[Rfam]
RNA: Glutamine-II riboswitch aptamer
RNA sequence: GUCCGUUCAUCCCCCCUUGGGGACGCAUGACUCCUAAGCAUGGAACGGGGCUUAGGU
Numbered sequence: 001g002u003c004c005g006u007u008c009a010u011c012c013c014c015c016c017u018u019g020g021g022g023a024c025g026c027a028u029g030a031c032u033c034c035u036a037a038g039c040a041u042g043g044a045a046c047g048g049g050g051c052u053u054a055g056g057u
Base pairs, nucleotide, nucleotide: 004047005046006045007044008043010023011022012021013020014019033056034055035054036053037052038051039050